The record is a 44-nucleotide sequence from Povalibacter uvarum, which matches "Guanidine-II riboswitch aptamer (mini-ykkC)" in Rfam. The match comes from Rfam's covariance-model search (37 bits). Pairs were carried over by alignment from the consensus structure, which is taken from published work. Rfam's curators write: Simpler in structure and has fewer highly conserved nucleotide positions than the ykkC-yxkD leader. Despite this each of its two stem-loop structures directly bind free guanidine. The family has 72 seed sequences and 1,589 matches in Rfam 15.1.
RNA sequence: CUCCGGGGACGACCUCGCGGCUGAUCUCUCAAGGGGACGACCCC
Numbered sequence: 001c002u003c004c005g006g007g008g009a010c011g012a013c014c015u016c017g018c019g020g021c022u023g024a025u026c027u028c029u030c031a032a033g034g035g036g037a038c039g040a041c042c043c044c
Stems, first nucleotide, its partner, number of pairs: 001020002004017005033044004